[Rfam]
Nucleotides: 356
Stems, first nucleotide, its partner, number of pairs: 001154008011143004016046001018044005047102005055095003062089005068081005104138003111131005258354005263279005283346005288340003292335002299329004304325001307322005
Number, partner (000 for none) and nucleotide at each position: 001154a002153u003152u004151g005150u006149u007148a008147c009000a010000a011143u012142a013141g014140u015000a016046a017000u018044u019043g020042a021041a022040c023000u024000u025000a026000g027000u028000a029000c030000g031000a032000g033000a034000g035000g036000a037000a038000c039000c040022g041021u042020u043019c044018a045000u046016u047102c048101a049100g050099a051098u052000a053000a054000u055095u056094g057093g058000u059000a060000u061000a062089u063088g064087g065086c066085u067000u068081u069080g070079u071078u072077u073000g074000a075000u076000a077072a078071a079070g080069c081068a082000u083000u084000g085066a086065g087064c088063c089062g090000a091000a092000g093057c094056u095055a096000c097000c098051a099050u100049c101048u102047g103000u104138u105137g106136g107000a108000u109000u110000a111131u112130g113129g114128c115127u116000g117000a118000a119000c120000g121000c122000c123000u124000c125000u126000a127115a128114g129113u130112c131111a132000g133000a134000a135000u136106c137105c138104a139000u140014g141013c142012u143011a144000g145000a146000a147008g148007u149006a150005a151004u152003g153002a154001u155000g156000u157000u158000u159000g160000a161000g162000a163000a164000a165000a166000g167000g168000u169000u170000a171000a172000u173000a174000u175000a176000a177000g178000c179000u180000g181000u182000a183000a184000a185000g186000c187000u188000c189000c190000a191000g192000a193000c194000c195000a196000u197000a198000u199000a200000g201000u202000g203000a204000a205000u206000g207000a208000u209000u210000c211000u212000g213000g214000g215000a216000u217000a218000g219000a220000a221000a222000u223000u224000c225000c226000c227000a228000g229000u230000g231000a232000u233000g234000c235000a236000c237000u238000u239000g240000a241000a242000g243000u244000a245000a246000a247000g248000a249000a250000u251000a252000u253000u254000u255000u256000a257000g258354a259353g260352a261351u262350c263279c264278u265277a266276a267275g268000u269000a270000u271000a272000c273000g274000a275267c276266u277265u278264a279263g280000u281000g282000g283346g284345a285344a286343c287342a288340u289339g290338g291000u292335a293334u294000u295000g296000u297000a298000a299329g300328u301327g302326g303000u304325a305000g306000a307322g308321u309320a310319g311318c312000c313000u314000u315000g316000u317000u318311g319310u320309u321308a322307c323000g324000a325304u326302c327301c328300a329299u330000u331000g332000a333000g334293a335292u336000u337000u338290c339289c340288a341000a342287u343286g344285u345284u346283c347000g348000a349000a350262g351261a352260u353259u354258u355000g356000c
Eukaryotic large subunit ribosomal RNA: a 356-nucleotide part of an RNA from Metschnikowia cubensis. It is one of the family's seed sequences.